This 153-nucleotide part of an RNA from Trichoderma reesei belongs to the Rfam family "Ascomycota telomerase RNA". The family's RNA type in Rfam is non-coding RNA gene. Its family is annotated with telomere maintenance via telomerase, telomerase catalytic core complex and telomerase activity in the Gene Ontology. The family is grouped with related families in Rfam's "Telomerase clan". A reference for the family is Qi et al. (2013), "The common ancestral core of vertebrate and fungal telomerase RNAs", Nucleic Acids Res. The pairing is the family consensus, mapped onto this sequence.

[Rfam]
RNA sequence: UUCCCUGCUGGAUUCUCCAGUGAUUGCCUCGGUGGAUCUUGUCGAGAGACUACCCGAGAUGACAACGCGUUUUUUGCGGAUGUGUUUUGUGCGCGUGUAAAGGCCCUCCUAACCCUACGAGUUCUGGAGAGGAAACAAAAACAAGUCCUAGUU
Number, nucleotide and partner (000 for none) at each position: 001u000002u000003c000004c000005c000006u022007g021008c020009u019010g018011g017012a016013u000014u000015c000016u012017c011018c010019a009020g008021u007022g006023a000024u000025u000026g000027c061028c058029u057030c056031g055032g054033u052034g051035g050036a000037u000038c000039u000040u000041g000042u000043c048044g000045a000046g000047a000048g043049a000050c035051u034052a033053c000054c032055c031056g030057a029058g028059a000060u000061g027062a000063c000064a000065a000066c000067g000068c000069g000070u000071u000072u000073u000074u000075u000076g000077c000078g000079g147080a146081u145082g142083u141084g000085u140086u139087u138088u137089g136090u135091g000092c000093g000094c000095g000096u000097g000098u000099a000100a000101a000102g000103g000104c132105c131106c129107u128108c127109c126110u000111a000112a000113c000114c000115c000116u000117a000118c000119g000120a000121g000122u000123u000124c000125u000126g109127g108128a107129g106130a000131g105132g104133a000134a000135a090136c089137a088138a087139a086140a085141a083142c082143a000144a000145g081146u080147c079148c000149u000150a000151g000152u000153u000